[Rfam]
RNA sequence: AUUAUUACACGCAAAGGUAAUAAUGAAAUUAAAAAUUGGAAACUUUUUUUAAUUUGAUAGGGAGGAAACCAACUAUCAC
Number, nucleotide and partner (000 for none) at each position: 001a024002u023003u022004a021005u020006u019007a018008c017009a000010c000011g000012c000013a000014a000015a000016g000017g008018u007019a006020a005021u004022a003023a002024u001025g000026a055027a054028a053029u052030u051031a050032a049033a048034a047035a046036u000037u000038g043039g000040a000041a000042a000043c038044u000045u000046u035047u034048u033049u032050u031051a030052a029053u028054u027055u026056g077057a076058u075059a074060g073061g000062g000063a000064g000065g000066a000067a000068a000069c000070c000071a000072a000073c060074u059075a058076u057077c056078a000079c000
IMES-4 RNA motif: a 79-nucleotide RNA sequence.
The base pairs follow the family's consensus structure, which is taken from published work.
It is annotated as a non-coding RNA gene.
On this family, see Weinberg et al., Nature 2009: "Exceptional structured noncoding RNAs revealed by bacterial metagenome analysis".